Rfam assigns this 77-nucleotide RNA sequence from Geomonas silvestris to the family "c-di-GMP-I riboswitch aptamer". Rfam describes the family as follows. GEMM was predicted in a large-scale screen for bacterial structured RNA regulatory elements. NCBI's taxonomy places the organism under Bacteria, Pseudomonadati, Desulfuromonadia, Geobacterales, Geomonas. The match comes from Rfam's covariance-model search (45 bits).
RNA sequence: ACACGACAAUACUAAAACUUUCGCGAGGAAGUGGCGGAAAGCCUAUUGGGUCUCACCGAGACAGCCGGGUUGCCGAA
Numbered sequence: 001a002c003a004c005g006a007c008a009a010u011a012c013u014a015a016a017a018c019u020u021u022c023g024c025g026a027g028g029a030a031g032u033g034g035c036g037g038a039a040a041g042c043c044u045a046u047u048g049g050g051u052c053u054c055a056c057c058g059a060g061a062c063a064g065c066c067g068g069g070u071u072g073c074c075g076a077a
Base pairs, nucleotide, nucleotide: 012037013036017032018031019030020029021028022027040071041070042069043068047067048066049065050062051061052060053059054058